[Rfam]
RNA sequence: UCAGCCGGCCGGGCGGCCGCUCCGGGUUUACCCGGGGAGGAAAGUCCGGGCUCCUUGGAAGCACGGUGCCGGAUAACGUCCGGCGAGGGAAACCUCAGGGAAAGUGCCACAGAAAGCAAACCGCCCCAGGGUCCUCGGAUUCGGGGGUAAGGGUGAAAGGGUGCGGUAAGAGCGCACCGCGGACGCAGCAAUGCGCACGGCAGGGUAAACCCCACCGGGAGCAAGACCGAAUAGGAACGACAGGCGUUCGCGCCAAGCCCCGCUUCCAGGCUCGUCGUUCGGGUUGGUUGCUCGAGGCGGUCAGCAAUGGCCGUCCCAGAGGAAUGGUCGCCACGCCCAGGUGUCGAAAGCCUGGGCCCUACAAAACCCGGCUUACAGGCCGGCUGACAUU
Numbered sequence: 001u002c003a004g005c006c007g008g009c010c011g012g013g014c015g016g017c018c019g020c021u022c023c024g025g026g027u028u029u030a031c032c033c034g035g036g037g038a039g040g041a042a043a044g045u046c047c048g049g050g051c052u053c054c055u056u057g058g059a060a061g062c063a064c065g066g067u068g069c070c071g072g073a074u075a076a077c078g079u080c081c082g083g084c085g086a087g088g089g090a091a092a093c094c095u096c097a098g099g100g101a102a103a104g105u106g107c108c109a110c111a112g113a114a115a116g117c118a119a120a121c122c123g124c125c126c127c128a129g130g131g132u133c134c135u136c137g138g139a140u141u142c143g144g145g146g147g148u149a150a151g152g153g154u155g156a157a158a159g160g161g162u163g164c165g166g167u168a169a170g171a172g173c174g175c176a177c178c179g180c181g182g183a184c185g186c187a188g189c190a191a192u193g194c195g196c197a198c199g200g201c202a203g204g205g206u207a208a209a210c211c212c213c214a215c216c217g218g219g220a221g222c223a224a225g226a227c228c229g230a231a232u233a234g235g236a237a238c239g240a241c242a243g244g245c246g247u248u249c250g251c252g253c254c255a256a257g258c259c260c261c262g263c264u265u266c267c268a269g270g271c272u273c274g275u276c277g278u279u280c281g282g283g284u285u286g287g288u289u290g291c292u293c294g295a296g297g298c299g300g301u302c303a304g305c306a307a308u309g310g311c312c313g314u315c316c317c318a319g320a321g322g323a324a325u326g327g328u329c330g331c332c333a334c335g336c337c338c339a340g341g342u343g344u345c346g347a348a349a350g351c352c353u354g355g356g357c358c359c360u361a362c363a364a365a366a367c368c369c370g371g372c373u374u375a376c377a378g379g380c381c382g383g384c385u386g387a388c389a390u391u
Stems, first nucleotide, its partner, number of pairs: 001387010011376001012332007020037007042374003046371005051221004059265004064217005069083005084098001085096004099212002104210002106206003121152002123148005129142005160178006179201001180199002184195004225289004235280006256272004296315008

Shown here is a 391-nucleotide RNA sequence from Microvirga brassicacearum, a member of the family "Bacterial RNase P class A". The organism belongs to Microvirga, within Bacteria. It scores 303 bits against the family's covariance model.